Rfam assigns this 114-nucleotide sequence from Primula poissonii to the family "Plastid-psbA-1 3UTR RNA".
The base pairs follow the family's consensus structure, which was predicted with LocARNA.
The organism belongs to Primula, within Eukaryota.
[Rfam]
RNA sequence: UGAAGCUCCAUCUACAAAUGGAUAAGAAUUUUUUCUUGGUGUAUAUGAGCUUUUGAAAGUAAAGGAGCAAUAACGUCCUCUUGAUAGAACAAGAAUUUUGUUAUUGCUCCUUUA
Dot-bracket structure: ......(((((......)))))......................................(((((((((((((.(...((((........))))....).))))))))))))).